[Rfam]
RNA sequence: AAGAGCCUUAAGCCAAUAAAGACUGAGAAAAUUGACUUAAGAACCAA
Numbered sequence: 001a002a003g004a005g006c007c008u009u010a011a012g013c014c015a016a017u018a019a020a021g022a023c024u025g026a027g028a029a030a031a032u033u034g035a036c037u038u039a040a041g042a043a044c045c046a047a
Stems, first nucleotide, its partner, number of pairs: 007041002010038003014034004
The family of this 47-nucleotide RNA sequence from Sclerocarya birrea is "Plastid-rpl16 group II-D1 intron". Plastid-rpl16 is a non-coding RNA (ncRNA) recognised in plastids. It was recognised in and intronic region of a ribosome rpl16 gene. Pairs were carried over by alignment from the consensus structure, which was predicted with LocARNA.